Source information
This 59-nucleotide sequence belongs to the Rfam family "Streptococcus sRNA SpF59 (ldcC RNA)". A reference for the family is Mann et al. (2012), "Control of virulence by small RNAs in Streptococcus pneumoniae", PLoS Pathog.
[Rfam]
RNA sequence: UGACCAUAUUUGCCAAUGCAAAUACAAUCGGCCGGACGGACAGCCAGGUCAAAUGCCGA
Numbered sequence: 001u002g003a004c005c006a007u008a009u010u011u012g013c014c015a016a017u018g019c020a021a022a023u024a025c026a027a028u029c030g031g032c033c034g035g036a037c038g039g040a041c042a043g044c045c046a047g048g049u050c051a052a053a054u055g056c057c058g059a
Stems, first nucleotide, its partner, number of pairs: 001051005007024007